[Rfam]
RNA: GcvB RNA
Organism: Erwinia mallotivora
RNA sequence: ACUUCCAGAGCCGGAACGAAAAGCAGGUUAGAAAUUCAGGCAGUUAAGUGAGAUUUUGGCAGGCUUUUGGCUGGUGGUCGUGAUGUUGUGUUUGCAAUUGGUCUGACGAUUUUCAGACCGUGGGUGGUUCAGCUACCUUUUAUCAGUCCCGGAUUUAUCCUGUCUGUCCACAAAAUUAACAGCACCGCAGUUGCGGUGCUUUUUUUU
Numbered sequence: 001a002c003u004u005c006c007a008g009a010g011c012c013g014g015a016a017c018g019a020a021a022a023g024c025a026g027g028u029u030a031g032a033a034a035u036u037c038a039g040g041c042a043g044u045u046a047a048g049u050g051a052g053a054u055u056u057u058g059g060c061a062g063g064c065u066u067u068u069g070g071c072u073g074g075u076g077g078u079c080g081u082g083a084u085g086u087u088g089u090g091u092u093u094g095c096a097a098u099u100g101g102u103c104u105g106a107c108g109a110u111u112u113u114c115a116g117a118c119c120g121u122g123g124g125u126g127g128u129u130c131a132g133c134u135a136c137c138u139u140u141u142a143u144c145a146g147u148c149c150c151g152g153a154u155u156u157a158u159c160c161u162g163u164c165u166g167u168c169c170a171c172a173a174a175a176u177u178a179a180c181a182g183c184a185c186c187g188c189a190g191u192u193g194c195g196g197u198g199c200u201u202u203u204u205u206u207u
Stems, first nucleotide, its partner, number of pairs: 009072004015068002021066004029059001031057005099120008122138006154179002181200008